Overview:
The family of this 600-nucleotide part of an RNA from Mediterranea sp. An20 is "Bacterial large subunit ribosomal RNA". The organism belongs to Mediterranea, within Bacteria. The match comes from Rfam's covariance-model search (2767 bits).
RNA sequence: UAGUAUCGGUGAAGAUGCCGAUUACCCGCGAUGGGACGAAAAGACCCCGUGAACCUUUACUAUAGCUUAGCAUUGAAUUUGGGCAGCCGGUGUGUAGGAUAGGCCGGAGGCAAUGAUGCCGUGACGCCAGUUACGGAGUAGCCGCCGUUGAAAUACGGCCCUCCUGCUGUUUGAGUUCUAACCCGCGGUGCGGGGACAUUGCUUGGCGGGUAGUUUGACUGGGGUGGUCGCCUCCAAAAGCGUAACGGAGGCUUCUAAAGGUGCCCUCAGGACGAUUGGUAACCGUCCGUAGAGUGUAAUGGCAUAAGGGCGCUUGACUGGGAGACAGACAUGUCGAUCAGGUGGGAAACCAGAGCAUAGUGAUCCGGUGUUUCUGUAUGGAAAGGACAUCGCUCAAAGGAUAAAAGGUACUCCGGGGAUAACAGGCUGAUCCCUCCCAAGAGCUCAUAUCGACGGAGGGGUUUGGCACCUCGAUGUCGGCUCGUCACAUCCUGGGGCUGGAGAAGGUCCCAAGGGUUGGGCUGUUCGCCCAUUAAAGUGGCACGCGAGCUGGGUUCAGAACGUCGUGAGACAGUUCGGUCUCUAUCUAUCGUGGGCGCA
Number, nucleotide and partner (000 for none) at each position: 001u000002a000003g000004u000005a022006u021007c020008g019009g018010u000011g000012a000013a000014g000015a000016u000017g000018c009019c008020g007021a006022u005023u000024a000025c596026c595027c594028g593029c592030g591031a590032u589033g000034g588035g587036a586037c000038g583039a582040a000041a000042a000043g000044a000045c000046c417047c416048c415049g414050u000051g413052a412053a409054c408055c407056u406057u405058u000059a214060c213061u212062a211063u000064a000065g000066c206067u205068u000069a203070g202071c201072a200073u000074u000075g178076a177077a176078u175079u174080u173081g172082g171083g170084c169085a168086g167087c166088c000089g164090g163091u000092g161093u000094g000095u000096a000097g000098g000099a000100u000101a000102g160103g159104c158105c157106g156107g000108a000109g143110g142111c141112a000113a000114u000115g000116a000117u000118g000119c136120c135121g134122u133123g132124a131125c130126g000127c000128c000129a000130g125131u124132u123133a122134c121135g120136g119137a000138g000139u000140a000141g111142c110143c109144g000145c000146c000147g000148u000149u000150g000151a000152a000153a000154u000155a000156c106157g105158g104159c103160c102161c092162u000163c090164c089165u000166g087167c086168u085169g084170u083171u082172u081173g080174a079175g078176u077177u076178c075179u000180a000181a000182c194183c193184c192185g191186c000187g000188g000189u000190g000191c185192g184193g183194g182195g000196a000197c000198a000199u000200u072201g071202c070203u069204u000205g067206g066207c000208g000209g000210g000211u062212a061213g060214u059215u000216u000217g229218a228219c227220u226221g000222g000223g000224g000225u000226g220227g219228u218229c217230g252231c251232c250233u249234c248235c247236a000237a000238a000239a000240g000241c000242g000243u000244a000245a000246c000247g235248g234249a233250g232251g231252c230253u398254u000255c355256u354257a000258a000259a000260g000261g313262u312263g311264c310265c309266c308267u293268c292269a000270g288271g287272a286273c285274g284275a000276u000277u000278g000279g000280u000281a000282a000283c000284c274285g273286u272287c271288c270289g000290u000291a000292g268293a267294g303295u302296g000297u000298a000299a000300u000301g000302g295303c294304a000305u000306a000307a000308g266309g265310g264311c263312g262313c261314u000315u000316g000317a000318c341319u340320g339321g338322g000323a000324g335325a334326c333327a000328g000329a000330c000331a000332u000333g326334u325335c324336g000337a000338u321339c320340a319341g318342g000343u352344g351345g350346g000347a000348a000349a000350c345351c344352a343353g000354a256355g255356c000357a000358u000359a000360g000361u000362g000363a000364u000365c000366c392367g391368g390369u389370g388371u387372u386373u000374c385375u384376g000377u000378a000379u000380g000381g000382a000383a000384a375385g374386g372387a371388c370389a369390u368391c367392g366393c000394u000395c000396a000397a000398a253399g000400g000401a000402u000403a000404a000405a057406a056407g055408g054409u053410a000411c000412u052413c051414c049415g048416g047417g046418g000419a000420u000421a000422a000423c000424a000425g000426g467427c466428u465429g000430a464431u461432c460433c459434c458435u457436c456437c455438c000439a000440a000441g451442a450443g000444c000445u000446c000447a000448u000449a000450u442451c441452g000453a000454c000455g437456g436457a435458g434459g433460g432461g431462u000463u000464u430465g428466g427467c426468a000469c000470c000471u000472c000473g000474a000475u000476g000477u000478c553479g551480g550481c549482u548483c545484g542485u541486c540487a539488c538489a000490u000491c516492c515493u000494g511495g510496g509497g508498c507499u506500g000501g000502a000503g000504a000505a000506g499507g498508u497509c496510c495511c494512a000513a000514g000515g492516g491517u000518u532519g531520g530521g529522c528523u000524g000525u000526u000527c000528g522529c521530c520531c519532a518533u000534u000535a000536a000537a000538g488539u487540g486541g485542c484543a000544c000545g483546c000547g000548a482549g481550c480551u479552g000553g478554g000555u000556u000557c000558a000559g577560a576561a575562c574563g572564u571565c570566g000567u000568g000569a000570g565571a564572c563573a000574g562575u561576u560577c559578g000579g000580u000581c000582u039583c038584u000585a000586u036587c035588u034589a032590u031591c030592g029593u028594g027595g026596g025597c000598g000599c000600a000